Shown here is a 96-nucleotide RNA from Musca domestica, a member of the family "mir-210 microRNA precursor family".
RNA sequence: AAAGUACUUAUUACAGCUGCUGACCACUGCACAAGAUUAGAUUUGAUGACUCUUGUGCGUGUGACAAUGGCUAUUGUGAGUUACUAAUAUCGACAU
Dot-bracket structure: .....((((((...(((((.((.(((.((((((.((..............)).)))))))).).)).)))))...))))))...............

A search with the family's covariance model found it, with a score of 74 bits. The organism belongs to Musca, within Eukaryota.